[Rfam]
RNA sequence: GGAAGGUCUGCGUCCCCGGUGGGGCGGCCGGUCUUCAAAACCGGAUGGGGCCGCCAGCGGUCCCGGGUGGGUUCGACUCCCAUGGCCUUCC
Dot-bracket structure: ((((((((..((((((....)))))).(((((.......)))))..(((((........)))))...((((.......)))).))))))))

The record is a 91-nucleotide sequence from Crenobacter intestini, which matches "Selenocysteine transfer RNA" in Rfam. The organism belongs to Crenobacter, within Bacteria. Gene Ontology term of the family: triplet codon-amino acid adaptor activity. Its Rfam clan is "tRNA clan". The match comes from Rfam's covariance-model search (79 bits).